[Rfam]
RNA sequence: CGUCGCCCGCUUCACGGAGGCUAAGGUUUCCAUGACUGAGCGAUUCUCUAAUCUGGUCGUGCCGCUGCCCCACAAAGGCACCGACAUGCGCACUCAGGAUACCGACGGCUUGACGCCGGCCAGGUCCCGCGCAGUUUCCCCGCUGAAUAGUCGGCGAGGCGACGUAGAAAGCACGAUAUCUCC
Numbered sequence: 001c002g003u004c005g006c007c008c009g010c011u012u013c014a015c016g017g018a019g020g021c022u023a024a025g026g027u028u029u030c031c032a033u034g035a036c037u038g039a040g041c042g043a044u045u046c047u048c049u050a051a052u053c054u055g056g057u058c059g060u061g062c063c064g065c066u067g068c069c070c071c072a073c074a075a076a077g078g079c080a081c082c083g084a085c086a087u088g089c090g091c092a093c094u095c096a097g098g099a100u101a102c103c104g105a106c107g108g109c110u111u112g113a114c115g116c117c118g119g120c121c122a123g124g125u126c127c128c129g130c131g132c133a134g135u136u137u138c139c140c141c142g143c144u145g146a147a148u149a150g151u152c153g154g155c156g157a158g159g160c161g162a163c164g165u166a167g168a169a170a171g172c173a174c175g176a177u178a179u180c181u182c183c
Stems, first nucleotide, its partner, number of pairs: 004042003012035003016031006057176006063083002066080004087133005097127003102124002106118004135162002138159002141156006
Rfam assigns this 183-nucleotide RNA sequence to the family "RT-15 RNA". The family's consensus secondary structure is taken from published work. The sequence is in the family's curated seed alignment.